Rfam assigns this 134-nucleotide RNA from Cyprinus carpio to the family "Small nucleolar RNA SNORA14". Rfam describes the family as follows. ACA14 is a member of the H/ACA class of snoRNA that guide the sites of modification of uridines to pseudouridines. The family's RNA type in Rfam is H/ACA-box small nucleolar RNA.
[Rfam]
RNA sequence: CCGCAGUCCUUAAAACCCCCCGUGAGCUGCUGCUGUAGCUUCUGGGACAAGAAGGAAUGCAAGAGAAAACCAAGAACUUUCCAAAGCUACAUGUCUUCACAGUGACUAUGAGCUAUUUCACCUCUUGGACAUUG
Numbered sequence: 001c002c003g004c005a006g007u008c009c010u011u012a013a014a015a016c017c018c019c020c021c022g023u024g025a026g027c028u029g030c031u032g033c034u035g036u037a038g039c040u041u042c043u044g045g046g047a048c049a050a051g052a053a054g055g056a057a058u059g060c061a062a063g064a065g066a067a068a069a070c071c072a073a074g075a076a077c078u079u080u081c082c083a084a085a086g087c088u089a090c091a092u093g094u095c096u097u098c099a100c101a102g103u104g105a106c107u108a109u110g111a112g113c114u115a116u117u118u119c120a121c122c123u124c125u126u127g128g129a130c131a132u133u134g
Stems, first nucleotide, its partner, number of pairs: 003060003010052002019046004025040003065133002070128006085114004093106002097102001